[Rfam]
This 170-nucleotide RNA from Oryza meyeriana belongs to the Rfam family "MIR2118 microRNA precursor family". The base pairs follow the family's consensus structure, which was predicted with RNAalifold. Gene Ontology terms of the family: miRNA-mediated post-transcriptional gene silencing and RISC complex. For this family Rfam cites "Characterization and expression profiles of miRNAs in rice seeds" (Xue et al., Nucleic Acids Res, 2009). Rfam 15.1 lists 2,377 matches to the family in 45 species. The organism belongs to Oryza meyeriana, within Eukaryota.

RNA sequence: GCUGGGAAGAGGAAGAAACAGAGAAUCUCAGAAUUGUAGGAAUGAGAACAUGAAGGAAAGCCUAAGUGCUAAUACCCCCUCUAGCAUUGGAGGUGGAGACUUAGUUUCAUGUUUUCCUGAUGCCUCUCAUUCCUAUGGUUCUUGGGUGCUCCUUCCUCUUCCUUUUGGCU
Numbered sequence: 001g002c003u004g005g006g007a008a009g010a011g012g013a014a015g016a017a018a019c020a021g022a023g024a025a026u027c028u029c030a031g032a033a034u035u036g037u038a039g040g041a042a043u044g045a046g047a048a049c050a051u052g053a054a055g056g057a058a059a060g061c062c063u064a065a066g067u068g069c070u071a072a073u074a075c076c077c078c079c080u081c082u083a084g085c086a087u088u089g090g091a092g093g094u095g096g097a098g099a100c101u102u103a104g105u106u107u108c109a110u111g112u113u114u115u116c117c118u119g120a121u122g123c124c125u126c127u128c129a130u131u132c133c134u135a136u137g138g139u140u141c142u143u144g145g146g147u148g149c150u151c152c153u154u155c156c157u158c159u160u161c162c163u164u165u166u167g168g169c170u
Base pairs, nucleotide, nucleotide: 009161010160011159012158013157015155016154017153021151022150023149026146027145028144030142031141032140033139034138035137037135038134039133040132041131042130043129044128045127046126047125049122050121051120053118055117056116057115058114059113060112061111
Dot-bracket structure: ........(((((.(((...(((..(((.((((((.(((((((((((.(((.(.(((((((.................................................)))))))).)))..))))))))))).)))))).)))..))).))).))))).........